[Rfam]
RNA: Group II catalytic intron D1-D4-1
Organism: Thalassomonas actiniarum
RNA sequence: CGCCGUCAGGGGUAACCCUGUUCGGUGAUUAAGCAGAAGUCAGCAGACGGCAUAGUAGCCAAAUGCCCAGCGUAAUGGCUGGGACAUGGUGAAGGCC
Dot-bracket structure: ((..(.(((((....))))).)...))...........(((....)))(((......(((......((............)).....)))....)))
Numbered sequence: 001c002g003c004c005g006u007c008a009g010g011g012g013u014a015a016c017c018c019u020g021u022u023c024g025g026u027g028a029u030u031a032a033g034c035a036g037a038a039g040u041c042a043g044c045a046g047a048c049g050g051c052a053u054a055g056u057a058g059c060c061a062a063a064u065g066c067c068c069a070g071c072g073u074a075a076u077g078g079c080u081g082g083g084a085c086a087u088g089g090u091g092a093a094g095g096c097c
Stems, first nucleotide, its partner, number of pairs: 001027002005022001007020005039048003049097003058090003067082002